[Rfam]
RNA sequence: CUCGUCCGCUUGGUGGACGCCCGGUUCGCCGGGGUCCGGUCCCGGCUAGGCUGACGACGUGCGCCCCCUCGGGGAGCUGUGCGCCCCGUUCCCAGGAACCCGGCGCUCCGCCUCCGGGGAAGGGGCGCAAAGCCGACAGCCGUCGCACCCGAGGGAGCCUCUUCAUG
Numbered sequence: 001c002u003c004g005u006c007c008g009c010u011u012g013g014u015g016g017a018c019g020c021c022c023g024g025u026u027c028g029c030c031g032g033g034g035u036c037c038g039g040u041c042c043c044g045g046c047u048a049g050g051c052u053g054a055c056g057a058c059g060u061g062c063g064c065c066c067c068c069u070c071g072g073g074g075a076g077c078u079g080u081g082c083g084c085c086c087c088g089u090u091c092c093c094a095g096g097a098a099c100c101c102g103g104c105g106c107u108c109c110g111c112c113u114c115c116g117g118g119g120a121a122g123g124g125g126c127g128c129a130a131a132g133c134c135g136a137c138a139g140c141c142g143u144c145g146c147a148c149c150c151g152a153g154g155g156a157g158c159c160u161c162u163u164c165a166u167g
Stems, first nucleotide, its partner, number of pairs: 060129004066124004132146002135144003
Record summary: This 167-nucleotide RNA from Streptomyces sp. F-3 belongs to the Rfam family "Streptomyces-metH RNA". NCBI's taxonomy places the organism under Bacteria, Actinomycetota, Actinomycetes, Kitasatosporales, Streptomyces. The match comes from Rfam's covariance-model search (82 bits). The base pairs follow the family's consensus structure, which is taken from published work.